[Rfam]
Nucleotides: 073
Base pairs, nucleotide, nucleotide: 001072002071003070004069
Number, partner (000 for none) and nucleotide at each position: 001072c002071c003070g004069c005000g006000g007000g008000g009000a010000u011000g012000a013000g014000a015000c016000c017000c018000c019000g020000a021000a022000c023000u024000c025000u026000c027000u028000c029000u030000u031000u032000c033000c034000g035000a036000c037000g038000c039000c040000c041000g042000a043000g044000u045000g046000g047000g048000g049000a050000g051000a052000c053000g054000c055000u056000c057000g058000a059000u060000g061000g062000g063000a064000u065000c066000u067000g068000a069004g070003c071002g072001g073000c
About this RNA
The record is a 73-nucleotide RNA from Crypturellus soui, which matches "Small nucleolar RNA SNORD26" in Rfam. It scores 48 bits against the family's covariance model. The family has 17 seed sequences and 451 matches in Rfam 15.1. Lineage of the source: Eukaryota > Metazoa > Euteleostomi > Archelosauria > Crypturellus. Rfam links the family to the GO terms nucleolus and RNA processing.